[Rfam]
RNA sequence: AAAAUGUGCUAGGGGGGCCAGUAUAUGCUGGCUGAGAUAAGGGACUAUAUCCCUUGACUCUUAUACCUGAUCUGGUUAAUACCAGCGUAGGAAAGCGUUAAUAAUAUUAA
Numbered sequence: 001a002a003a004a005u006g007u008g009c010u011a012g013g014g015g016g017g018c019c020a021g022u023a024u025a026u027g028c029u030g031g032c033u034g035a036g037a038u039a040a041g042g043g044a045c046u047a048u049a050u051c052c053c054u055u056g057a058c059u060c061u062u063a064u065a066c067c068u069g070a071u072c073u074g075g076u077u078a079a080u081a082c083c084a085g086c087g088u089a090g091g092a093a094a095g096c097g098u099u100a101a102u103a104a105u106a107u108u109a110a
Base pairs, nucleotide, nucleotide: 006098007097008096009095010094011061012060013059014058016055017032018031019030020029021028040054041053042052043051066091067090068089069088072085073084074083075082

Source information:
TPP riboswitch aptamer (THI element): a 110-nucleotide RNA sequence from Oxobacter pfennigii. Pairs were carried over by alignment from the consensus structure, which is taken from published work. A search with the family's covariance model found it, with a score of 76 bits. About the family: Vitamin B(1) in its active form thiamin pyrophosphate (TPP) is an essential coenzyme that is synthesised by coupling of pyrimidine and thiazole moieties in bacteria. Gene Ontology term of the family: thiamine pyrophosphate binding.